[Rfam]
RNA: Selenocysteine transfer RNA
RNA sequence: GGAAGGCAUCCGUAUCCGGUGGUGCGGCUGGGCUUCAAACCCAGUAGGGGGUGUCAGACAUUCCUUGGUCGGUUCGACUCCGGCUGCCUUCC
Numbered sequence: 001g002g003a004a005g006g007c008a009u010c011c012g013u014a015u016c017c018g019g020u021g022g023u024g025c026g027g028c029u030g031g032g033c034u035u036c037a038a039a040c041c042c043a044g045u046a047g048g049g050g051g052u053g054u055c056a057g058a059c060a061u062u063c064c065u066u067g068g069u070c071g072g073u074u075c076g077a078c079u080c081c082g083g084c085u086g087c088c089u090u091c092c
Base pairs, nucleotide, nucleotide: 001092002091003090004089005088006087007086008085011026012025013024014023015022016021027045028044029043030042031041032040047066048065049064050063051062069083070082071081072080